Background: This 85-nucleotide RNA sequence from Medicago truncatula belongs to the Rfam family "MIR2617 microRNA precursor family".
RNA sequence: AUGUAGUGUAGCAUGCCCGUUUGUGGAAUUACGUGGAAUUUGAUUGUCAUUUAAAUGAUUUUGGGUAACGGCGUGUUAUAAGAUG
Dot-bracket structure: .(((..((((((((..(((((.............................................))))).))))))))..)))
Record summary:
A search with the family's covariance model found it, with a score of 54 bits. Lineage of the source: Eukaryota > Mesangiospermae > Gunneridae > Hologalegina > Medicago.